[Rfam]
RNA sequence: AAGUACUCCCGAAUCUCGCCACGGACGGCGGCGAUAGGGAUAACGGCUGGUUGGCACAGCCAGCGGUCCGACUGUUCGACCGGAGUGGGGGACGUUUCGCCCCGCGAGAACAGGUCACGGGCCGCGAAUCCUAAUAUCCCAACUCGGAGGGAAUCCCACGACCUCAGUCGUGGGA
Numbered sequence: 001a002a003g004u005a006c007u008c009c010c011g012a013a014u015c016u017c018g019c020c021a022c023g024g025a026c027g028g029c030g031g032c033g034a035u036a037g038g039g040a041u042a043a044c045g046g047c048u049g050g051u052u053g054g055c056a057c058a059g060c061c062a063g064c065g066g067u068c069c070g071a072c073u074g075u076u077c078g079a080c081c082g083g084a085g086u087g088g089g090g091g092a093c094g095u096u097u098c099g100c101c102c103c104g105c106g107a108g109a110a111c112a113g114g115u116c117a118c119g120g121g122c123c124g125c126g127a128a129u130c131c132u133a134a135u136a137u138c139c140c141a142a143c144u145c146g147g148a149g150g151g152a153a154u155c156c157c158a159c160g161a162c163c164u165c166a167g168u169c170g171u172g173g174g175a
Base pairs, nucleotide, nucleotide: 003044004043007040008039009038010037013035014034015033016031017030018029019028020027045061046060047059048058049057064124065123066122067121068120069119072113073112074111075110076109077108089103090102091101093099137152138151139150140149143147154175155174156173157172158171159170160169161168162167
RNA: Sense overlapping transcript RNA 0042 (sot)